[Rfam]
RNA sequence: AGAUGAAUUACUGGGCAGUUCUUCUUUGGCAGGUGGCUACUCUACCACUACCAACAUGAAUGCUUCAUACGGUGUGAUUAGGGAGCUCAUUGCCAAAGGAGAUAUGCCCCGCAAUUUAACU
Numbered sequence: 001a002g003a004u005g006a007a008u009u010a011c012u013g014g015g016c017a018g019u020u021c022u023u024c025u026u027u028g029g030c031a032g033g034u035g036g037c038u039a040c041u042c043u044a045c046c047a048c049u050a051c052c053a054a055c056a057u058g059a060a061u062g063c064u065u066c067a068u069a070c071g072g073u074g075u076g077a078u079u080a081g082g083g084a085g086c087u088c089a090u091u092g093c094c095a096a097a098g099g100a101g102a103u104a105u106g107c108c109c110c111g112c113a114a115u116u117u118a119a120c121u
Base pairs, nucleotide, nucleotide: 005117006116007115008114009113011111013109014108015107016106017105018103021101022100023099024098027095028094029093030092031091032090034089035088
RNA: mir-399 microRNA precursor family
Organism: Protea cynaroides